[Rfam]
small nucleolar RNA snoR137: a 142-nucleotide RNA sequence from Brassica carinata.
The family's consensus secondary structure was predicted with RNAalifold.
For this family Rfam cites "Mining small RNA sequencing data: a new approach to identify small nucleolar RNAs in Arabidopsis" (Chen and Wu, Nucleic Acids Res, 2009).

RNA sequence: UUUGCUUCAUAAUGGUGAGCUCUCUUAGAUAAAUAAAAGUGAGAGAAGUUCAAGUUUCCGGAGCAAAGAUAAAACUGGCCAGAAUUAAACAGCUCUGUGUUUAUACCUAUUUUCACAGCGUUACCUGUCUUCUGGUAUAUAU
Numbered sequence: 001u002u003u004g005c006u007u008c009a010u011a012a013u014g015g016u017g018a019g020c021u022c023u024c025u026u027a028g029a030u031a032a033a034u035a036a037a038a039g040u041g042a043g044a045g046a047a048g049u050u051c052a053a054g055u056u057u058c059c060g061g062a063g064c065a066a067a068g069a070u071a072a073a074a075c076u077g078g079c080c081a082g083a084a085u086u087a088a089a090c091a092g093c094u095c096u097g098u099g100u101u102u103a104u105a106c107c108u109a110u111u112u113u114c115a116c117a118g119c120g121u122u123a124c125c126u127g128u129c130u131u132c133u134g135g136u137a138u139a140u141a142u
Stems, first nucleotide, its partner, number of pairs: 003065006016052005021046005078136007091122003095118005